[Rfam]
RNA sequence: GCGUUUGUGGUUUAGUGGUAAAAUCCAUCGUUGCCAUCCUGGGUUCCGAUCCAGUUCAGUGUCGAUGGGCCCCGGGUUCGAUUCCCGGCGGACGCA
Numbered sequence: 001g002c003g004u005u006u007g008u009g010g011u012u013u014a015g016u017g018g019u020a021a022a023a024u025c026c027a028u029c030g031u032u033g034c035c036a037u038c039c040u041g042g043g044u045u046c047c048g049a050u051c052c053a054g055u056u057c058a059g060u061g062u063c064g065a066u067g068g069g070c071c072c073c074g075g076g077u078u079c080g081a082u083u084c085c086c087g088g089c090g091g092a093c094g095c096a
Stems, first nucleotide, its partner, number of pairs: 001095007010024004026067005072088005

This 96-nucleotide RNA sequence from Orbilia oligospora belongs to the Rfam family "tRNA". Lineage of the source: Eukaryota > Fungi > saccharomyceta > Orbiliomycetes > Orbilia oligospora. The family's RNA type in Rfam is transfer RNA. Transfer RNA (tRNA) molecules are approximately 80 nucleotides in length. Their secondary structure includes four short double-helical elements and three loops (D, anti-codon, and T loops). Further hydrogen bonds mediate the characteristic L-shaped molecular structure. tRNAs have two regions of fundamental functional importance: the anti-codon, which is responsible for specific mRNA codon recognition, and the 3' end, to which the tRNAs corresponding amino acid is attached (by aminoacyl-tRNA synthetases). tRNAs cope with the degeneracy of the genetic code in two manners: having more than one tRNA (with a specific anti-codon) for a particular amino acid; and 'wobble' base-pairing, i.e. permitting non-standard base-pairing at the 3rd anti-codon position. Its family is annotated with triplet codon-amino acid adaptor activity in the Gene Ontology.